[Rfam]
RNA sequence: CCAAAUCACCAGGACACAGGGGUUGCAGAGUGCAAACAGCAAUUGCCACUGCAUCCCCUGUGUCCUGGUGAUUUUGU
Numbered sequence: 001c002c003a004a005a006u007c008a009c010c011a012g013g014a015c016a017c018a019g020g021g022g023u024u025g026c027a028g029a030g031u032g033c034a035a036a037c038a039g040c041a042a043u044u045g046c047c048a049c050u051g052c053a054u055c056c057c058c059u060g061u062g063u064c065c066u067g068g069u070g071a072u073u074u075u076g077u
Stems, first nucleotide, its partner, number of pairs: 003074005009068013024053004
Shown here is a 77-nucleotide RNA sequence from Dipodomys ordii, a member of the family "mir-1421 microRNA precursor family". The family's consensus secondary structure was predicted with RNAalifold.